[Rfam]
RNA sequence: CUGAAAAGUUUGCCGAAUUCCAACAUGGAAGCGGGGGAACCAACUAUUGGGGCGAAUUCCGAAAGGAUCGGAUACUCUUUCAAUCCAAGCCCGUCAGCUAACCUCGUAGGUGUAGAAAGAGAGACAUG
Numbered sequence: 001c002u003g004a005a006a007a008g009u010u011u012g013c014c015g016a017a018u019u020c021c022a023a024c025a026u027g028g029a030a031g032c033g034g035g036g037g038a039a040c041c042a043a044c045u046a047u048u049g050g051g052g053c054g055a056a057u058u059c060c061g062a063a064a065g066g067a068u069c070g071g072a073u074a075c076u077c078u079u080u081c082a083a084u085c086c087a088a089g090c091c092c093g094u095c096a097g098c099u100a101a102c103c104u105c106g107u108a109g110g111u112g113u114a115g116a117a118a119g120a121g122a123g124a125c126a127u128g
Stems, first nucleotide, its partner, number of pairs: 011112004018030003031107006041049002050092003058067003070086004
RNA: c-di-AMP riboswitch aptamer (ydaO/yuaA leader)
Organism: Geosporobacter ferrireducens